[Rfam]
This 57-nucleotide RNA from Heterostelium album belongs to the Rfam family "Class I RNA from Dictyostelium". The base pairs follow the family's consensus structure, which is taken from published work. NCBI's taxonomy places the organism under Eukaryota, Amoebozoa, Evosea, Acytosteliales, Heterostelium album. Dictyostelium Class I RNA was first reported for Aspegren et al. 2004 in Dictyostelium discoideum. Sucgang et al. 2011 identify putative homologs of Class I RNA in D. discoideum and D. purpureum. Rfam classes the family as a non-coding RNA gene.
RNA sequence: GUUCACAUUAUAGCAAUCAAAUCAAUUCAAACAAAUCUUAAACUCUUGUGUGAUCUG
Numbered sequence: 001g002u003u004c005a006c007a008u009u010a011u012a013g014c015a016a017u018c019a020a021a022u023c024a025a026u027u028c029a030a031a032c033a034a035a036u037c038u039u040a041a042a043c044u045c046u047u048g049u050g051u052g053a054u055c056u057g
Stems, first nucleotide, its partner, number of pairs: 001055001003053004